[Rfam]
RNA sequence: UUGCUGUGAUGACUUUAUAUUGUGGUUUCCAUCACUGAAUGUGUAAUAAUGAGGACACCUAUUUCCUUGGCUGUGUCUGAGCAA
Numbered sequence: 001u002u003g004c005u006g007u008g009a010u011g012a013c014u015u016u017a018u019a020u021u022g023u024g025g026u027u028u029c030c031a032u033c034a035c036u037g038a039a040u041g042u043g044u045a046a047u048a049a050u051g052a053g054g055a056c057a058c059c060u061a062u063u064u065c066c067u068u069g070g071c072u073g074u075g076u077c078u079g080a081g082c083a084a
Base pairs, nucleotide, nucleotide: 001084002083003082004081
Rfam assigns this 84-nucleotide sequence from Xenopus laevis to the family "Small nucleolar RNA SNORD53/SNORD92".
It is annotated as a C/D-box small nucleolar RNA.
A reference for the family is Kiss-Laszlo et al. (1996), "Site-specific ribose methylation of preribosomal RNA: a novel function for small nucleolar RNAs", Cell.
Its Rfam clan is "SNORD52 clan".
The base pairs follow the family's consensus structure.